[Rfam]
RNA sequence: AGUAUGAAAAACUGUAAGUCGCUCUGGAUAAGAGCAUCUGCUAAAAUGACUAAAA
Numbered sequence: 001a002g003u004a005u006g007a008a009a010a011a012c013u014g015u016a017a018g019u020c021g022c023u024c025u026g027g028a029u030a031a032g033a034g035c036a037u038c039u040g041c042u043a044a045a046a047u048g049a050c051u052a053a054a055a
Base pairs, nucleotide, nucleotide: 013043014041015040016039021035022034023033024032025031

Rfam assigns this 55-nucleotide RNA from Coregonus sp. 'balchen' to the family "UnaL2 LINE 3' element".
The source organism's lineage runs through Eukaryota, Craniata, Gnathostomata, Teleostomi and Coregonus.
A search with the family's covariance model found it, with a score of 62 bits.
The base pairs follow the family's consensus structure, which is taken from published work.
The family's RNA type in Rfam is cis-regulatory element.